[Rfam]
Nucleotides: 086
Stems, first nucleotide, its partner, number of pairs: 007065001009063002012060003019052003023048003027045004070085003074081002
Number, partner (000 for none) and nucleotide at each position: 001000a002000u003000c004000c005000u006000g007065g008000g009063u010062g011000g012060u013059u014058a015000a016000u017000g018000c019052u020051a021050c022000a023048c024047c025046a026000c027045c028044a029043g030042g031000c032000c033000a034000g035000g036000c037000a038000u039000a040000a041000u042030c043029c044028u045027g046025u047024g048023g049000a050021g051020u052019a053000a054000a055000a056000c057000a058014u059013g060012a061000g062010c063009g064000a065007u066000a067000a068000a069000a070085u071084u072083a073000u074081u075080c076000a077000c078000c079000u080075g081074a082000c083072u084071g085070a086000c